Notes:
The record is a 139-nucleotide sequence from Mitsuokella jalaludinii, which matches "Molybdenum/Tungsten riboswitch aptamer (Moco RNA motif)" in Rfam. Its family is annotated with tungstate binding, molybdenum ion binding and regulation of gene expression in the Gene Ontology.
RNA sequence: GAUAAGUCGAAACUCCGAGCGAAAGCACUCUAAGGAUGAUGUCUUUCAUCUAUGAGGCUGAGCCUGGGUCAAACCCACAGGGCAGUGCUGGAAAUGGCACUGCCUUCCGUUUUUGAAAAGGAGCUAUGCACCAUGAAAA
Dot-bracket structure: ..(.......(.((((..((...(((.(((...((((((......))))))..))))))..)).(((((...)))))..(((((((((((....)))))))))))((.......))...)))).).......)......